[Rfam]
RNA sequence: AGGAAAUGAAGGGAGGAGACGGGGACGAGACAGAGCAUGGGAUGGACCUUUCAACACCAUUCGCGGUUUUGUUGCCCUUUCCAUGCACUGCCUCUUCCCUGGCUCCUCUCCCUCUCUCUUUC
Numbered sequence: 001a002g003g004a005a006a007u008g009a010a011g012g013g014a015g016g017a018g019a020c021g022g023g024g025a026c027g028a029g030a031c032a033g034a035g036c037a038u039g040g041g042a043u044g045g046a047c048c049u050u051u052c053a054a055c056a057c058c059a060u061u062c063g064c065g066g067u068u069u070u071g072u073u074g075c076c077c078u079u080u081c082c083a084u085g086c087a088c089u090g091c092c093u094c095u096u097c098c099c100u101g102g103c104u105c106c107u108c109u110c111c112c113u114c115u116c117u118c119u120u121u122c
Base pairs, nucleotide, nucleotide: 016105017104018103020101021100022099023098024097025096028093029092031090032089033088035086036085037084038083039082041081045077
A member of the RNA family "MIR408 microRNA precursor family" from Salvia splendens, 122 nucleotides long. The family has 8 seed sequences and 299 matches in Rfam 15.1. Its family is annotated with miRNA-mediated post-transcriptional gene silencing and RISC complex in the Gene Ontology. The family's consensus secondary structure was predicted with WAR. The match comes from Rfam's covariance-model search (83 bits). The source organism's lineage runs through Eukaryota, Embryophyta, Gunneridae, Pentapetalae and core Calosphace.